[Rfam]
RNA sequence: UCAGUUGCAAACUAGCAUCUGGGGCCCACACAACGAGUAUCUGAUUACUCCACAAACCAUUGCCCCGGGAAGGUCUGAGAAUCGGCCGAGCCAGCUGUUUGUUGCGGCUUCAUUUCCCAGCAGGAAACCUGUGUGAUUGCAGGGCGAAAGUACCAGAAAUCCUGCUACCAGGUGUUGCCGUUGCCCCCGGUGACCGCCGCCUGGUUGGCAUUGAAACCUUUCGUGGCCAGCGUUUUUAGUGCGAUGUGCUUGCUGCCUCUAAGGCAGAACUCAAUUCAGACUAAUCUGUGACUGA
Numbered sequence: 001u002c003a004g005u006u007g008c009a010a011a012c013u014a015g016c017a018u019c020u021g022g023g024g025c026c027c028a029c030a031c032a033a034c035g036a037g038u039a040u041c042u043g044a045u046u047a048c049u050c051c052a053c054a055a056a057c058c059a060u061u062g063c064c065c066c067g068g069g070a071a072g073g074u075c076u077g078a079g080a081a082u083c084g085g086c087c088g089a090g091c092c093a094g095c096u097g098u099u100u101g102u103u104g105c106g107g108c109u110u111c112a113u114u115u116c117c118c119a120g121c122a123g124g125a126a127a128c129c130u131g132u133g134u135g136a137u138u139g140c141a142g143g144g145c146g147a148a149a150g151u152a153c154c155a156g157a158a159a160u161c162c163u164g165c166u167a168c169c170a171g172g173u174g175u176u177g178c179c180g181u182u183g184c185c186c187c188c189g190g191u192g193a194c195c196g197c198c199g200c201c202u203g204g205u206u207g208g209c210a211u212u213g214a215a216a217c218c219u220u221u222c223g224u225g226g227c228c229a230g231c232g233u234u235u236u237u238a239g240u241g242c243g244a245u246g247u248g249c250u251u252g253c254u255g256c257c258u259c260u261a262a263g264g265c266a267g268a269a270c271u272c273a274a275u276u277c278a279g280a281c282u283a284a285u286c287u288g289u290g291a292c293u294g295a
Base pairs, nucleotide, nucleotide: 001295002294003293004292007289008288009287012252014250015249016248017247018246021066022065023064024063025062035050036049037048038047039046075279076278077277078276079275084228085227086226087225113127114126115125116124117123128143129142130141131140132139133138144224145223146222147221148220149219150218163210164209165208253267254266255265256264257263
This 295-nucleotide sequence from Drosophila melanogaster belongs to the Rfam family "Nuclear RNase P". The sequence is in the family's curated seed alignment. It is annotated as a ribozyme. Taxonomically the source falls in Sophophora (Eukaryota, Protostomia, Cyclorrhapha, Drosophilidae).